[Rfam]
RNA sequence: UUACCUUUCAAUUCAUCCAUUCGUAUAUCCUCGGCAAUAUGGGCUGGGGGUCUCUACCGGGAACCUUAAAUUCCCGACUACGAAGGAUGUGGGGACACCC
Numbered sequence: 001u002u003a004c005c006u007u008u009c010a011a012u013u014c015a016u017c018c019a020u021u022c023g024u025a026u027a028u029c030c031u032c033g034g035c036a037a038u039a040u041g042g043g044c045u046g047g048g049g050g051u052c053u054c055u056a057c058c059g060g061g062a063a064c065c066u067u068a069a070a071u072u073c074c075c076g077a078c079u080a081c082g083a084a085g086g087a088u089g090u091g092g093g094g095a096c097a098c099c100c
Stems, first nucleotide, its partner, number of pairs: 018086001020084006029049007058076006
Dot-bracket structure: .................(.((((((...(((((((.......)))))))........((((((.......))))))..)))))).)..............